[Rfam]
RNA sequence: CUGCAUCUCUAUAAACCCCCUGAUGUCUCUUUGUGGACUGCAGGACAAGAAGAGAUGCUACAGAGAACAUGAGAUUUCCAAAAGGCAGAGAUUUUGCCUCGUCUCUGCUUUAUUUCACCUCUCGCACAUUA
Numbered sequence: 001c002u003g004c005a006u007c008u009c010u011a012u013a014a015a016c017c018c019c020c021u022g023a024u025g026u027c028u029c030u031u032u033g034u035g036g037a038c039u040g041c042a043g044g045a046c047a048a049g050a051a052g053a054g055a056u057g058c059u060a061c062a063g064a065g066a067a068c069a070u071g072a073g074a075u076u077u078c079c080a081a082a083a084g085g086c087a088g089a090g091a092u093u094u095u096g097c098c099u100c101g102u103c104u105c106u107g108c109u110u111u112a113u114u115u116c117a118c119c120u121c122u123c124g125c126a127c128a129u130u131a
Base pairs, nucleotide, nucleotide: 003058004057005056006055008051010050012048019044020043021042022041025038026037027036063130064129070124071123072122073121074120082111083110084109085108086107087106088105090103091102

Shown here is a 131-nucleotide sequence from Eleutherodactylus coqui, a member of the family "Small nucleolar RNA SNORA14".
Gene Ontology terms of the family: nucleolus and RNA processing.
It is annotated as an H/ACA-box small nucleolar RNA.
ACA14 is a member of the H/ACA class of snoRNA that guide the sites of modification of uridines to pseudouridines.
Taxonomically the source falls in Eleutherodactylus (Eukaryota, Metazoa, Chordata, Gnathostomata).